[Rfam]
RNA sequence: CAAAUCGUGCGGUGAUGCACGGUUGAACCGUAAGAAGUCAGCCGAGGUCAUAGUACCGGAGACGGGAAGGAC
Numbered sequence: 001c002a003a004a005u006c007g008u009g010c011g012g013u014g015a016u017g018c019a020c021g022g023u024u025g026a027a028c029c030g031u032a033a034g035a036a037g038u039c040a041g042c043c044g045a046g047g048u049c050a051u052a053g054u055a056c057c058g059g060a061g062a063c064g065g066g067a068a069g070g071a072c
Stems, first nucleotide, its partner, number of pairs: 001025002004023008038045002047072003056065003
The record is a 72-nucleotide sequence from Natranaerobius trueperi, which matches "Group II catalytic intron D1-D4-1" in Rfam. Group II introns are found in rRNA, tRNA and mRNA of organelles in fungi, plants and protists, and also in mRNA in bacteria. The literature on the family includes a 2001 paper in Trends Genet by Bonen and Vogel, "The ins and outs of group II introns". Gene Ontology term of the family: Group II intron splicing. A search with the family's covariance model found it, with a score of 65 bits.